RNA: IMES-1 RNA motif
RNA sequence: CUUGAACUGACCAGCAACCAACUGCAGACGGAAACUGGGGGGAACAAGAAGGAAGAAGCCGAGGGGCGAAAGCGUUACUAAGAGUCGAUGAUAAAAAAUAGCUUAGUAACCCACCAAGGAAAUAAAGAGAUAAUUUCCAAGGAGCUAGAGAGAAUCUCACUUUAGACCCCUUCGAACUUCGAACUAAAAGA
Numbered sequence: 001c002u003u004g005a006a007c008u009g010a011c012c013a014g015c016a017a018c019c020a021a022c023u024g025c026a027g028a029c030g031g032a033a034a035c036u037g038g039g040g041g042g043a044a045c046a047a048g049a050a051g052g053a054a055g056a057a058g059c060c061g062a063g064g065g066g067c068g069a070a071a072g073c074g075u076u077a078c079u080a081a082g083a084g085u086c087g088a089u090g091a092u093a094a095a096a097a098a099u100a101g102c103u104u105a106g107u108a109a110c111c112c113a114c115c116a117a118g119g120a121a122a123u124a125a126a127g128a129g130a131u132a133a134u135u136u137c138c139a140a141g142g143a144g145c146u147a148g149a150g151a152g153a154a155u156c157u158c159a160c161u162u163u164a165g166a167c168c169c170c171u172u173c174g175a176a177c178u179u180c181g182a183a184c185u186a187a188a189a190g191a
Stems, first nucleotide, its partner, number of pairs: 001048004011038004060174006074110009118138001120136004127158005145165006